The record is a 113-nucleotide RNA from Anabas testudineus, which matches "U5 spliceosomal RNA" in Rfam.
RNA sequence: ACUCUUGUUUCUCUUCAGAUCGUAUAAAUCUUUUCUUGCCUUUACUAAAGAUUUCCGUGGAGAGGAACAACAAGAGUUUAACUCAUUUUUUGAUGCCCUGCUUAUGCGGGGCU
Number, nucleotide and partner (000 for none) at each position: 001a000002c000003u075004c074005u073006u072007g068008u067009u066010u065011c064012u063013c062014u061015u060016c059017a058018g000019a000020u000021c000022g000023u000024a000025u000026a054027a053028a052029u051030c050031u049032u048033u047034u000035c000036u000037u000038g000039c000040c000041u000042u000043u000044a000045c000046u000047a033048a032049a031050g030051a029052u028053u027054u026055c000056c000057g000058u017059g016060g015061a014062g013063a012064g011065g010066a009067a008068c007069a000070a000071c000072a006073a005074g004075a003076g000077u000078u000079u000080a000081a000082c000083u000084c000085a000086u000087u000088u000089u000090u000091u000092g000093a113094u000095g112096c111097c110098c109099u108100g107101c000102u000103u000104a000105u000106g000107c100108g099109g098110g097111g096112c095113u093
The base pairs follow the family's consensus structure, which is taken from published work. It scores 75 bits against the family's covariance model. The family's RNA type in Rfam is spliceosomal small nuclear RNA. A reference for the family is Thomas et al. (1990), "The spliceosomal snRNAs of Caenorhabditis elegans", Nucleic Acids Res. Rfam's curators write: U5 RNA is a component of both types of known spliceosome. The precise function of this molecule is unknown, though it is known that the 5' loop is required for splice site selection and p220 binding, and that both the 3' stem-loop and the Sm site are important for Sm protein binding and cap methylation. NCBI's taxonomy places the organism under Eukaryota, Neoteleostei, Eurypterygia, Euacanthomorphacea, Anabas.